The record is a 71-nucleotide RNA from Archangium sp. Cb G35, which matches "tRNA" in Rfam. By type it is a transfer RNA. Its Rfam clan is "tRNA clan". The family's consensus secondary structure is taken from published work. Transfer RNA (tRNA) molecules are approximately 80 nucleotides in length.

RNA sequence: GGGGAUGUAGCUCAAAGGUAGAGCACCUGCCUGAUAAGCGGGAGACAGCAGUUCGAGUCUGCUCGUCCCUA
Numbered sequence: 001g002g003g004g005a006u007g008u009a010g011c012u013c014a015a016a017g018g019u020a021g022a023g024c025a026c027c028u029g030c031c032u033g034a035u036a037a038g039c040g041g042g043a044g045a046c047a048g049c050a051g052u053u054c055g056a057g058u059c060u061g062c063u064c065g066u067c068c069c070u071a
Base pairs, nucleotide, nucleotide: 001070002069003068004067005066006065007064010024011023012022013021026042027041028040029039030038047063048062049061050060051059